[Rfam]
Notes: Shown here is a 93-nucleotide RNA sequence from Aotus nancymaae, a member of the family "Y RNA". Y RNAs are components of the Ro ribonucleoprotein particle (Ro RNP), in association with Ro60 and La proteins. The Y RNAs and Ro60 and La proteins are well conserved, but the function of the Ro RNP is not known. In humans the RNA component can be one of four small RNAs -- hY1, hY3, hY4 and hY5. The match comes from Rfam's covariance-model search (49 bits). It is annotated as a non-coding RNA gene.
RNA sequence: GGCAGGUCCAAUGGUAAUGGGUAAUCAGAAUUUAACAUUAGUGUCACUAAAGUUGGUAUAUGACUCCCCACUGUUAAAUUUGACUGGCUUAAA
Numbered sequence: 001g002g003c004a005g006g007u008c009c010a011a012u013g014g015u016a017a018u019g020g021g022u023a024a025u026c027a028g029a030a031u032u033u034a035a036c037a038u039u040a041g042u043g044u045c046a047c048u049a050a051a052g053u054u055g056g057u058a059u060a061u062g063a064c065u066c067c068c069c070a071c072u073g074u075u076a077a078a079u080u081u082g083a084c085u086g087g088c089u090u091a092a093a
Base pairs, nucleotide, nucleotide: 001089002088003087005085006084007083008082010081011080015076016072018070019069020068021067027057030054